[Rfam]
RNA: Small Cajal body-specific RNA 7
RNA sequence: UGGAAAUGAUGAAAUAGAGAUAAUUGGAUGUCAUUUUGAAUGGAGUGUGUGUGAUAAAUGGGAUUUAAACCAAGUCAGACUGGGGGGUGGGGGGAAUGUGUGUGUGUGUGCCUGUACAGAAAAGGCUUGAAAUGGGGGCACUGAAAAUGUGGUGCUGACAGCCGGAGUGCAUCUGAGGCAUGUUGUUAAAUUCUGGGGUGCCACUUUACAACAUUGCCGAUGAUUAAAGCCCAAAACAAGCCCACCAAGACAAGCCUAGAGGCAUCCUAAAUCUCUGACAGGUUCAUUAUUGACAGUGUUCCUGUGAUCUGAUCUGA
Numbered sequence: 001u002g003g004a005a006a007u008g009a010u011g012a013a014a015u016a017g018a019g020a021u022a023a024u025u026g027g028a029u030g031u032c033a034u035u036u037u038g039a040a041u042g043g044a045g046u047g048u049g050u051g052u053g054a055u056a057a058a059u060g061g062g063a064u065u066u067a068a069a070c071c072a073a074g075u076c077a078g079a080c081u082g083g084g085g086g087g088u089g090g091g092g093g094g095a096a097u098g099u100g101u102g103u104g105u106g107u108g109u110g111c112c113u114g115u116a117c118a119g120a121a122a123a124g125g126c127u128u129g130a131a132a133u134g135g136g137g138g139c140a141c142u143g144a145a146a147a148u149g150u151g152g153u154g155c156u157g158a159c160a161g162c163c164g165g166a167g168u169g170c171a172u173c174u175g176a177g178g179c180a181u182g183u184u185g186u187u188a189a190a191u192u193c194u195g196g197g198g199u200g201c202c203a204c205u206u207u208a209c210a211a212c213a214u215u216g217c218c219g220a221u222g223a224u225u226a227a228a229g230c231c232c233a234a235a236a237c238a239a240g241c242c243c244a245c246c247a248a249g250a251c252a253a254g255c256c257u258a259g260a261g262g263c264a265u266c267c268u269a270a271a272u273c274u275c276u277g278a279c280a281g282g283u284u285c286a287u288u289a290u291u292g293a294c295a296g297u298g299u300u301c302c303u304g305u306g307a308u309c310u311g312a313u314c315u316g317a
Stems, first nucleotide, its partner, number of pairs: 001316004181213006188206001191200001193198001